[Rfam]
The record is a 198-nucleotide sequence from Babesia microti, which matches "ACEA small nucleolar RNA U3" in Rfam. The family is grouped with related families in Rfam's "U3 clan". The organism belongs to Babesia microti, within Eukaryota.
RNA sequence: UCGACUGUGCUCGUACGGGAUCAUUUCUAUAGUGAACCCUAUCGUCUCACGCAACAGCGACUGACAAAGUUAGCAACCGCGAUGAUGAUUUCUACACUCUGCCGGUCCUGGAAUUAAGCAAUUGAACUCAGUUCAUUUCGCGUCGAUGAAAGCGUAGCACCUCUGGUGCGGCGUCGGACAGGGUGAUUCUGAGUGGUC
Number, nucleotide and partner (000 for none) at each position: 001u041002c000003g039004a000005c000006u035007g000008u034009g033010c032011u031012c000013g000014u000015a000016c000017g028018g027019g026020a025021u000022c000023a000024u000025u020026u019027c018028u017029a000030u000031a011032g010033u009034g008035a006036a000037c000038c000039c003040u000041a001042u000043c000044g065045u064046c063047u000048c000049a000050c059051g058052c057053a000054a000055c000056a000057g052058c051059g050060a000061c000062u000063g046064a045065c044066a000067a000068a000069g000070u000071u000072a000073g000074c000075a000076a197077c196078c195079g194080c193081g000082a000083u000084g000085a000086u000087g000088a000089u000090u000091u000092c000093u000094a000095c185096a184097c183098u182099c181100u180101g179102c177103c176104g175105g000106u000107c000108c152109u151110g000111g000112a000113a000114u000115u000116a000117a000118g141119c140120a000121a136122u000123u000124g000125a000126a000127c000128u000129c000130a000131g000132u000133u000134c000135a000136u121137u000138u000139c000140g119141c118142g000143u000144c000145g000146a000147u000148g000149a000150a000151a109152g108153c000154g000155u000156a000157g000158c000159a000160c171161c170162u000163c000164u000165g000166g000167u000168g000169c000170g161171g160172c000173g000174u000175c104176g103177g102178a000179c101180a100181g099182g098183g097184u096185g095186a000187u000188u000189c000190u000191g000192a000193g080194u079195g078196g077197u076198c000

Description: A search with the family's covariance model found it, with a score of 89 bits. Rfam describes the family as follows. Small nucleolar RNAs (snoRNAs) are involved in the processing and modification of rRNA in the nucleolus. There are two main classes of snoRNAs: the box C/D class, and the box H/ACA class.